[Rfam]
RNA: U1 spliceosomal RNA
Organism: Trichonephila clavipes
RNA sequence: AUACCCAACUGGCAUUGGGAAUGCCUUGAUCACAAGGGAGGCUUCCCCGAGCAGAGGCCAUCCAUUGCACUCUGGGUGGUUGACGUUCGCCACUUCCGCAAAUAGCGCUUGCUUGGGGUGCACAAUUUUUGGUAGUUGGACUGCGUUCGCACUGUCCCGU
Numbered sequence: 001a002u003a004c005c006c007a008a009c010u011g012g013c014a015u016u017g018g019g020a021a022u023g024c025c026u027u028g029a030u031c032a033c034a035a036g037g038g039a040g041g042c043u044u045c046c047c048c049g050a051g052c053a054g055a056g057g058c059c060a061u062c063c064a065u066u067g068c069a070c071u072c073u074g075g076g077u078g079g080u081u082g083a084c085g086u087u088c089g090c091c092a093c094u095u096c097c098g099c100a101a102a103u104a105g106c107g108c109u110u111g112c113u114u115g116g117g118g119u120g121c122a123c124a125a126u127u128u129u130u131g132g133u134a135g136u137u138g139g140a141c142u143g144c145g146u147u148c149g150c151a152c153u154g155u156c157c158c159g160u
Stems, first nucleotide, its partner, number of pairs: 012121004017047005023042005049088004054084001056081003060077004090116003097107002136159001138157003143152001145150001